[Rfam]
RNA: Small nucleolar RNA snoR74
RNA sequence: CAAAAAGCAGGGCUCUGUUUUGUUCGUAACAGAGUUCACGUAAAUGUCAGGAAAAUCGAAUUGGUCAUCGUGUUUGGGUGAACCUACGUUUCUUCUUAUAUCUGAUGGGUUCAGUUCAUGAUGGUACAUUG
Numbered sequence: 001c002a003a004a005a006a007g008c009a010g011g012g013c014u015c016u017g018u019u020u021u022g023u024u025c026g027u028a029a030c031a032g033a034g035u036u037c038a039c040g041u042a043a044a045u046g047u048c049a050g051g052a053a054a055a056u057c058g059a060a061u062u063g064g065u066c067a068u069c070g071u072g073u074u075u076g077g078g079u080g081a082a083c084c085u086a087c088g089u090u091u092c093u094u095c096u097u098a099u100a101u102c103u104g105a106u107g108g109g110u111u112c113a114g115u116u117c118a119u120g121a122u123g124g125u126a127c128a129u130u131g
Base pairs, nucleotide, nucleotide: 005047007045011036012035014033015032016031017030064125065124066123067122068121069120070119071118072117079113080112081111082110083109084108085107